[Rfam]
This 183-nucleotide RNA from Paenibacillus arenilitoris belongs to the Rfam family "6S / SsrS RNA".
It is annotated as a non-coding RNA gene.
Lineage of the source: Bacteria > Bacillota > Bacilli > Paenibacillaceae > Paenibacillus.

RNA sequence: UACCUCCUGCGAUGCUCGUUACGGCUUUGCGCUGUUUUGAACCAAUGGCUGUUUCACGGGAGACCUACAUCGAAGCGUAGCUGACACGCCCCCGAAAGGGGAUCUCAAAAGCGGUUCUGCGGUCACCCACCUGCGUAAGCGGGUUCAGAAACAAGUGAGUCGGACGGCAUAGGCGGGUUCUAA
Dot-bracket structure: .(...(((((.((((.(((..............((((((((((..............(((.((((...(..(((.(((.....(....((((.....))))...).....))).))))..)))).))).............)))))).))))...........)))))))..)))))...)..